RNA sequence: CAGGCGACGGCAGCGCGCGCUACUCCGGCGCCGGGCUGUGCUUACGAGUCAGGUACCUGAAGUAGCGCGCGCGGCCGCCGCCA
Number, nucleotide and partner (000 for none) at each position: 001c000002a000003g000004g000005c000006g000007a000008c000009g076010g075011c074012a000013g000014c071015g000016c069017g068018c067019g066020c065021u064022a063023c000024u000025c000026c000027g000028g000029c000030g054031c053032c052033g000034g050035g049036c048037u047038g000039u000040g000041c000042u000043u000044a000045c000046g000047a037048g036049u035050c034051a000052g032053g031054u030055a000056c000057c000058u000059g000060a000061a000062g000063u022064a021065g020066c019067g018068c017069g016070c000071g014072c000073g000074g011075c010076c009077g000078c000079c000080g000081c000082c000083a000
A member of the RNA family "mir-275 microRNA precursor family" from Spodoptera exigua, 83 nucleotides long. Its family is annotated with miRNA-mediated post-transcriptional gene silencing and RISC complex in the Gene Ontology. Pairs were carried over by alignment from the consensus structure, which was predicted with RNAalifold. Lineage of the source: Eukaryota > Pancrustacea > Endopterygota > Noctuidae > Spodoptera.